[Rfam]
RNA sequence: AAUUUGAAAAGGCAAACUCAUUGAAAAAUGGGGACGCAAAGCCACGGGUCUAAGGUUUGAAAAAACUAUGAUAGCCGGGUUGCCGAA
Numbered sequence: 001a002a003u004u005u006g007a008a009a010a011g012g013c014a015a016a017c018u019c020a021u022u023g024a025a026a027a028a029u030g031g032g033g034a035c036g037c038a039a040a041g042c043c044a045c046g047g048g049u050c051u052a053a054g055g056u057u058u059g060a061a062a063a064a065a066c067u068a069u070g071a072u073a074g075c076c077g078g079g080u081u082g083c084c085g086a087a
Base pairs, nucleotide, nucleotide: 012037013036017032018031019030020029021028022027040081041080042079043078045077046076047075048072049071050070055066056065057064058063